[Rfam]
RNA: 6C RNA
RNA sequence: GCCCCGGCACAAUCCCCCCCCGUUGCCGGGUUACUGACGGCCCGCGCACACCCCCCCCGAGGCGCGGGCCGUCCCUU
Numbered sequence: 001g002c003c004c005c006g007g008c009a010c011a012a013u014c015c016c017c018c019c020c021c022g023u024u025g026c027c028g029g030g031u032u033a034c035u036g037a038c039g040g041c042c043c044g045c046g047c048a049c050a051c052c053c054c055c056c057c058c059g060a061g062g063c064g065c066g067g068g069c070c071g072u073c074c075c076u077u
Stems, first nucleotide, its partner, number of pairs: 003030007036073012